Rfam assigns this 50-nucleotide RNA from Sphaerotilus hippei to the family "Guanidine-II riboswitch aptamer (mini-ykkC)". NCBI's taxonomy places the organism under Bacteria, Pseudomonadota, Burkholderiales, Sphaerotilaceae, Sphaerotilus.

[Rfam]
RNA sequence: CGCGCGGGACGACUCACGCGCCGUCUUCUUUCUCUGGCGGGACGACCCGC
Numbered sequence: 001c002g003c004g005c006g007g008g009a010c011g012a013c014u015c016a017c018g019c020g021c022c023g024u025c026u027u028c029u030u031u032c033u034c035u036g037g038c039g040g041g042a043c044g045a046c047c048c049g050c
Stems, first nucleotide, its partner, number of pairs: 001020004006015003037050005
About the family: Simpler in structure and has fewer highly conserved nucleotide positions than the ykkC-yxkD leader. Despite this each of its two stem-loop structures directly bind free guanidine. Therefore, mini-ykkC RNA motif represents a distinct class of guanidine-sensing RNAs. Its crystal structure was also determined.